RNA sequence: GCGCAGUGCAAAGGGCCACUUCAGUAUUUCUCGCUGUUUGGAUAUUUUCAUAAAAUUCCAUUCAGCAAAACUCAAAAUUAUAUACUGGGCGAAAGUCCCCGGGCGCCGAGGCAGAAAGUGCCAUCCCGAAAGGGCAGGACCCCUACCAGCUGGCACUGCUUUGCAGUGCAGUAGCGGUGGGGCAGCUCGCCAUAGCUACAGUUAUGUUGGCCGGCAGAUUUUUAAUCUGUCAACACAACGGGGCUUACUCUUGUACUGACG
Numbered sequence: 001g002c003g004c005a006g007u008g009c010a011a012a013g014g015g016c017c018a019c020u021u022c023a024g025u026a027u028u029u030c031u032c033g034c035u036g037u038u039u040g041g042a043u044a045u046u047u048u049c050a051u052a053a054a055a056u057u058c059c060a061u062u063c064a065g066c067a068a069a070a071c072u073c074a075a076a077a078u079u080a081u082a083u084a085c086u087g088g089g090c091g092a093a094a095g096u097c098c099c100c101g102g103g104c105g106c107c108g109a110g111g112c113a114g115a116a117a118g119u120g121c122c123a124u125c126c127c128g129a130a131a132g133g134g135c136a137g138g139a140c141c142c143c144u145a146c147c148a149g150c151u152g153g154c155a156c157u158g159c160u161u162u163g164c165a166g167u168g169c170a171g172u173a174g175c176g177g178u179g180g181g182g183c184a185g186c187u188c189g190c191c192a193u194a195g196c197u198a199c200a201g202u203u204a205u206g207u208u209g210g211c212c213g214g215c216a217g218a219u220u221u222u223u224a225a226u227c228u229g230u231c232a233a234c235a236c237a238a239c240g241g242g243g244c245u246u247a248c249u250c251u252u253g254u255a256c257u258g259a260c261g
Stems, first nucleotide, its partner, number of pairs: 002261002004258008014212005019206001021088007036071004041066001093246003097243004110122004125134003137183001144179004152175001155172001156166004214230006
RNA: RNase MRP